Rfam assigns this 46-nucleotide sequence from Patiria miniata to the family "Histone 3' UTR stem-loop". The family's RNA type in Rfam is cis-regulatory element. The match comes from Rfam's covariance-model search (36 bits). Rfam describes the family as follows. The mRNAs of metazoan histone genes lack a poly-A tail. 3' end processing occurs at a site between a highly conserved stem-loop (modelled by this family) and a purine rich region around 20 nts downstream (the histone downstream element, or HDE). The stem-loop is bound by a 31 kDa stem-loop binding protein (SLBP - also termed the histone hairpin binding protein, or HBP). Together with U7 snRNA binding of the HDE, SLBP binding nucleate s the formation of the processing complex. The base pairs follow the family's consensus structure, which is taken from published work.
RNA sequence: CAACCGGUUCUUUUCAGAACCACACUUCUUCCAAGAAGAGAUUUCU
Numbered sequence: 001c002a003a004c005c006g007g008u009u010c011u012u013u014u015c016a017g018a019a020c021c022a023c024a025c026u027u028c029u030u031c032c033a034a035g036a037a038g039a040g041a042u043u044u045c046u
Stems, first nucleotide, its partner, number of pairs: 006021006